[Rfam]
RNA sequence: AGACUGUGCCUUUCAGGCAUCCUCUCCUAAAACUUUUACGGCCGGUCUUUGACCGGCCUUUUUUUGGGUCUGC
Numbered sequence: 001a002g003a004c005u006g007u008g009c010c011u012u013u014c015a016g017g018c019a020u021c022c023u024c025u026c027c028u029a030a031a032a033c034u035u036u037u038a039c040g041g042c043c044g045g046u047c048u049u050u051g052a053c054c055g056g057c058c059u060u061u062u063u064u065u066g067g068g069u070c071u072g073c
Base pairs, nucleotide, nucleotide: 008018009017010016011015040058041057042056043055044054045053046052047051
RNA: Makes More Granules Regulator RNA (mmgR)
Organism: Sphingomonas sp. Ant20